[Rfam]
RNA sequence: UUACCAGACCGGGCCCCUCUGGCAGCUUCUUUCGGGCUGUGAUGUCGGACUGGAAGU
Numbered sequence: 001u002u003a004c005c006a007g008a009c010c011g012g013g014c015c016c017c018u019c020u021g022g023c024a025g026c027u028u029c030u031u032u033c034g035g036g037c038u039g040u041g042a043u044g045u046c047g048g049a050c051u052g053g054a055a056g057u
Base pairs, nucleotide, nucleotide: 006051007050009048010047011046012045022040023039024038025037026036027035028034
Source information:
Rfam assigns this 57-nucleotide RNA from Chelativorans sp. BNC1 to the family "terC RNA". The base pairs follow the family's consensus structure, which is taken from published work. The sequence is in the family's curated seed alignment. The source organism's lineage runs through Bacteria, Pseudomonadati, Hyphomicrobiales, Phyllobacteriaceae and Chelativorans.